[Rfam]
RNA sequence: CAUUUAGCCAGUGGUUGGCUGAUCGCUUGCGAGAAAACAGGUGCUUUGGUUAUCUCGUGGCGUUUCUUUUUUAU
Numbered sequence: 001c002a003u004u005u006a007g008c009c010a011g012u013g014g015u016u017g018g019c020u021g022a023u024c025g026c027u028u029g030c031g032a033g034a035a036a037a038c039a040g041g042u043g044c045u046u047u048g049g050u051u052a053u054c055u056c057g058u059g060g061c062g063u064u065u066c067u068u069u070u071u072u073a074u
Base pairs, nucleotide, nucleotide: 004022005021006020007019008018009017010016011015024062025061026060027059029058030057031056032055033054034053036051037050038049

A member of the RNA family "Chlorobi-RRM RNA" from Chlorobaculum tepidum, 74 nucleotides long. The family's RNA type in Rfam is cis-regulatory element.